[Rfam]
RNA sequence: CACACACUUGACCCGCGUCCGGCAGGAGCGGGGGACCCACCAGGUACGACUGCCUGUCCCGGUCUCCGCGACAGGCUCGGGGUGAAGCCGCGCAGGGCGCGGCCGGGCAGCUCCAGCCCGAACCCGACAGCUGACCUCGCAGGCGCCGGAGAGGAAUG
Dot-bracket structure: ....(.((....((..........)).((((((....(........................................)(((.....((((.......))))..((((.......))))...))).........)))))).)).).............
Rfam assigns this 158-nucleotide RNA sequence from Streptomyces lucensis to the family "c-di-AMP riboswitch aptamer (ydaO/yuaA leader)". This family represents a conserved RNA structure found upstream of the ydaO and yuaA genes in Bacillus subtilis and related genes in other bacteria. Lineage of the source: Bacteria > Bacillati > Actinomycetota > Streptomycetaceae > Streptomyces lucensis. A search with the family's covariance model found it, with a score of 54 bits. The base pairs follow the family's consensus structure.